The record is a 217-nucleotide sequence from Parageobacillus caldoxylosilyticus, which matches "T-box leader" in Rfam. Lineage of the source: Bacteria > Bacillati > Caryophanales > Anoxybacillaceae > Parageobacillus caldoxylosilyticus.
[Rfam]
RNA sequence: GCGAAAGCGAUGAAAGGAACUAGUAGCAAGACCGUUUCUCUUCAGAGAGUCGGUGGGUGGUGUGAACCGAUGGGGAACGCUUGUGAAUCCGUCCUUGAGCAAAAUGCUGAAUGCGUAAGCUAGUAAGCAUUUUCGGUUUUUCGCCGUUAUCGGUGCAAGCGGAAGACAACCUUGUCUUCAAUAAGGGUGGCAACGCGGGAUUGCUCUCGUCCCUUUU
Numbered sequence: 001g002c003g004a005a006a007g008c009g010a011u012g013a014a015a016g017g018a019a020c021u022a023g024u025a026g027c028a029a030g031a032c033c034g035u036u037u038c039u040c041u042u043c044a045g046a047g048a049g050u051c052g053g054u055g056g057g058u059g060g061u062g063u064g065a066a067c068c069g070a071u072g073g074g075g076a077a078c079g080c081u082u083g084u085g086a087a088u089c090c091g092u093c094c095u096u097g098a099g100c101a102a103a104a105u106g107c108u109g110a111a112u113g114c115g116u117a118a119g120c121u122a123g124u125a126a127g128c129a130u131u132u133u134c135g136g137u138u139u140u141u142c143g144c145c146g147u148u149a150u151c152g153g154u155g156c157a158a159g160c161g162g163a164a165g166a167c168a169a170c171c172u173u174g175u176c177u178u179c180a181a182u183a184a185g186g187g188u189g190g191c192a193a194c195g196c197g198g199g200a201u202u203g204c205u206c207u208c209g210u211c212c213c214u215u216u217u
Base pairs, nucleotide, nucleotide: 007100008099015095016094017093018092026084027083028082029081030080038074039073040072049071050070051069052068053067054066102132103131104130105129106128107127108126134146135145136144162179163178164177165176166175167174168173184214185213186212187211195210196209197208198207199206